[Rfam]
RNA sequence: UGUCUCAAAGAUUAAGCCAUGCAAUUGUCAGAAAAUCAUGUUCAGUCGCAAGAUUGAAAAUUGUGAAUCUGAGACUCGCUCCUUAAACAAAUCCUAGUGCAUCCUUUAGUUUGAAUAUGUUGUAUAACAUGUUUAUUAAAUGGAUACCUGACCUAACUGGUCAGUUAAUACAUGAUAACUUUAGUAGUCAUCUAUUUUUAAAUUGAAUUUUGGUGACUAAUAUUGGAAACUUUUUCGGAAGUGGAAGAUACGCAGACCUACAGAACAGGGUUUACCUGAUAUGAGUCUUUUGAUUCUUUGGAAUCAAGAAAUUUAACUGAAGGCCUUAAGGAACAAGGAUUUAAGGAUUAGUUAGUUGGUACGGUAGUGUCCUAUCAAGACUAUAAUCCUUACGAGAAAUUAUCGUUUGAUUUCGGAGAGAGAGCCUUAAAAACCGCUAUCACGUCUAAGGAAGGCAGCAGGCGCGCAAAUUACCCAAUAUCAAUUCGAUGAGGUAGUGACAAGACGUAAUGACCUCCCACUUUUAUGAGGGUUAUCCGCAAGGAUAUUACAAUGGUCUGAAAUUAAAAUUCUCAGAGAGAAACGA
Numbered sequence: 001u002g003u004c005u006c007a008a009a010g011a012u013u014a015a016g017c018c019a020u021g022c023a024a025u026u027g028u029c030a031g032a033a034a035a036u037c038a039u040g041u042u043c044a045g046u047c048g049c050a051a052g053a054u055u056g057a058a059a060a061u062u063g064u065g066a067a068u069c070u071g072a073g074a075c076u077c078g079c080u081c082c083u084u085a086a087a088c089a090a091a092u093c094c095u096a097g098u099g100c101a102u103c104c105u106u107u108a109g110u111u112u113g114a115a116u117a118u119g120u121u122g123u124a125u126a127a128c129a130u131g132u133u134u135a136u137u138a139a140a141u142g143g144a145u146a147c148c149u150g151a152c153c154u155a156a157c158u159g160g161u162c163a164g165u166u167a168a169u170a171c172a173u174g175a176u177a178a179c180u181u182u183a184g185u186a187g188u189c190a191u192c193u194a195u196u197u198u199u200a201a202a203u204u205g206a207a208u209u210u211u212g213g214u215g216a217c218u219a220a221u222a223u224u225g226g227a228a229a230c231u232u233u234u235u236c237g238g239a240a241g242u243g244g245a246a247g248a249u250a251c252g253c254a255g256a257c258c259u260a261c262a263g264a265a266c267a268g269g270g271u272u273u274a275c276c277u278g279a280u281a282u283g284a285g286u287c288u289u290u291u292g293a294u295u296c297u298u299u300g301g302a303a304u305c306a307a308g309a310a311a312u313u314u315a316a317c318u319g320a321a322g323g324c325c326u327u328a329a330g331g332a333a334c335a336a337g338g339a340u341u342u343a344a345g346g347a348u349u350a351g352u353u354a355g356u357u358g359g360u361a362c363g364g365u366a367g368u369g370u371c372c373u374a375u376c377a378a379g380a381c382u383a384u385a386a387u388c389c390u391u392a393c394g395a396g397a398a399a400u401u402a403u404c405g406u407u408u409g410a411u412u413u414c415g416g417a418g419a420g421a422g423a424g425c426c427u428u429a430a431a432a433a434c435c436g437c438u439a440u441c442a443c444g445u446c447u448a449a450g451g452a453a454g455g456c457a458g459c460a461g462g463c464g465c466g467c468a469a470a471u472u473a474c475c476c477a478a479u480a481u482c483a484a485u486u487c488g489a490u491g492a493g494g495u496a497g498u499g500a501c502a503a504g505a506c507g508u509a510a511u512g513a514c515c516u517c518c519c520a521c522u523u524u525u526a527u528g529a530g531g532g533u534u535a536u537c538c539g540c541a542a543g544g545a546u547a548u549u550a551c552a553a554u555g556g557u558c559u560g561a562a563a564u565u566a567a568a569a570u571u572c573u574c575a576g577a578g579a580g581a582a583a584c585g586a
Base pairs, nucleotide, nucleotide: 002506003505004504005503009498010465016463017462018461020460021459022458025072026071030070031069032068037063038062079418080417081416089342090341091340094337095336098335099334104330105329106328140173141172142171148164149163150162151161152160153159180202181201182200183199184198187195188194207294208293209292212289220282221281222280223279268277269276270275304323305322310318312316344390345389346388351381352380353379356378357377358376359375360374361373363371393415394414395413396412397408398407399406400405420441421440423438424437425436443454445452446451471496473495474494475493479491480490481489482488511550512549513548516544517543521539557577558576561573563571

A member of the RNA family "Eukaryotic small subunit ribosomal RNA" from Percolomonas cosmopolitus, 586 nucleotides of a longer RNA.
NCBI's taxonomy places the organism under Eukaryota, Discoba, Tetramitia, Eutetramitea, Percolomonas.
The family is grouped with related families in Rfam's "SSU clan".
It is one of the family's seed sequences.